[Rfam]
RNA: mir-302 microRNA precursor family
Organism: Oryctolagus cuniculus
RNA sequence: UCUCUACUUUAACAUGGAGGCACUUGCUGUGCCAUGAUAAAAAUAAGUGCUUCCAUGUUUGAGUGUGG
Number, nucleotide and partner (000 for none) at each position: 001u068002c067003u000004c000005u065006a064007c063008u062009u000010u000011a059012a058013c057014a056015u055016g054017g053018a052019g051020g050021c049022a048023c047024u046025u045026g044027c000028u042029g000030u000031g000032c000033c000034a000035u000036g000037a000038u000039a000040a000041a000042a028043a000044u026045a025046a024047g023048u022049g021050c020051u019052u018053c017054c016055a015056u014057g013058u012059u011060u000061g000062a008063g007064u006065g005066u000067g002068g001